[Rfam]
RNA: FMN riboswitch aptamer (RFN element)
Organism: Feifania hominis
RNA sequence: UAGCCACUUCGGGGCGGGGUGAAAGUCCCCACCGGCGGUAAAGCGGCCAUGGCCGACGAGUCCGAGAGCGAGAGCAGAGACGGUUGGAUCCUGUCACCGACAGUAGAGUCUGGAUGAAAUGAAGUGAACA
Numbered sequence: 001u002a003g004c005c006a007c008u009u010c011g012g013g014g015c016g017g018g019g020u021g022a023a024a025g026u027c028c029c030c031a032c033c034g035g036c037g038g039u040a041a042a043g044c045g046g047c048c049a050u051g052g053c054c055g056a057c058g059a060g061u062c063c064g065a066g067a068g069c070g071a072g073a074g075c076a077g078a079g080a081c082g083g084u085u086g087g088a089u090c091c092u093g094u095c096a097c098c099g100a101c102a103g104u105a106g107a108g109u110c111u112g113g114a115u116g117a118a119a120u121g122a123a124g125u126g127a128a129c130a
Stems, first nucleotide, its partner, number of pairs: 005126006017029003031109002033099002036064003060097002068075002079095005101112003